[Rfam]
RNA sequence: UGGACAUGAGGACAAAAUGCAAAUCUGGAGUUCACUGUGAAGACUUCUAAUCCAACUCUGAUCCAAACAGCGCU
Numbered sequence: 001u002g003g004a005c006a007u008g009a010g011g012a013c014a015a016a017a018u019g020c021a022a023a024u025c026u027g028g029a030g031u032u033c034a035c036u037g038u039g040a041a042g043a044c045u046u047c048u049a050a051u052c053c054a055a056c057u058c059u060g061a062u063c064c065a066a067a068c069a070g071c072g073c074u
Stems, first nucleotide, its partner, number of pairs: 001065004
The family of this 74-nucleotide RNA from Salarias fasciatus is "Small nucleolar RNA SNORD19". The base pairs follow the family's consensus structure. Gene Ontology terms of the family: RNA processing and nucleolus. Clan: SNORD19 clan. A reference for the family is Huttenhofer et al. (2001), "RNomics: an experimental approach that identifies 201 candidates for novel, small, non-messenger RNAs in mouse", EMBO J. Rfam 15.1 lists 1,431 matches to the family in 609 species. The organism belongs to Salarias, within Eukaryota.